This 275-nucleotide RNA sequence from Sorghum bicolor belongs to the Rfam family "MIR821 microRNA precursor family". Its family is annotated with RISC complex and miRNA-mediated post-transcriptional gene silencing in the Gene Ontology. The source organism's lineage runs through Eukaryota, Viridiplantae, Petrosaviidae, Andropogonodae and Sorghum.
RNA sequence: GAUUUUAGUUGAUAAAGUUAUGAAUAUACAAGUUGUACAACUCAUCAAGAUCUACAACUUUUAUUUUGGUUAUUUAUUCAUCCGACAAAGUAAUAGUAACAUUGUUCAUAAAUUUUACAUAUCUCUCAUAUAGUUUAUGAAACUAUAUCAGAGAUAUGUAAAAUUUAUGAACAAUGUUACUAUUACUUUGUCAUAUGAAAAAAUGACUAAAAUAAAAAUUGGAGAUCUUGACCAGUUUUACAACUUUUAUGUUGAUGACUUUUUUAGCUGAAAUC
Numbered sequence: 001g002a003u004u005u006u007a008g009u010u011g012a013u014a015a016a017g018u019u020a021u022g023a024a025u026a027u028a029c030a031a032g033u034u035g036u037a038c039a040a041c042u043c044a045u046c047a048a049g050a051u052c053u054a055c056a057a058c059u060u061u062u063a064u065u066u067u068g069g070u071u072a073u074u075u076a077u078u079c080a081u082c083c084g085a086c087a088a089a090g091u092a093a094u095a096g097u098a099a100c101a102u103u104g105u106u107c108a109u110a111a112a113u114u115u116u117a118c119a120u121a122u123c124u125c126u127c128a129u130a131u132a133g134u135u136u137a138u139g140a141a142a143c144u145a146u147a148u149c150a151g152a153g154a155u156a157u158g159u160a161a162a163a164u165u166u167a168u169g170a171a172c173a174a175u176g177u178u179a180c181u182a183u184u185a186c187u188u189u190g191u192c193a194u195a196u197g198a199a200a201a202a203a204u205g206a207c208u209a210a211a212a213u214a215a216a217a218a219u220u221g222g223a224g225a226u227c228u229u230g231a232c233c234a235g236u237u238u239u240a241c242a243a244c245u246u247u248u249a250u251g252u253u254g255a256u257g258a259c260u261u262u263u264u265u266a267g268c269u270g271a272a273a274u275c
Stems, first nucleotide, its partner, number of pairs: 014262008023253002026250002030246008039237004045231009055221003059217009069207007077199005084192009094182006101175012114162002117159006131145006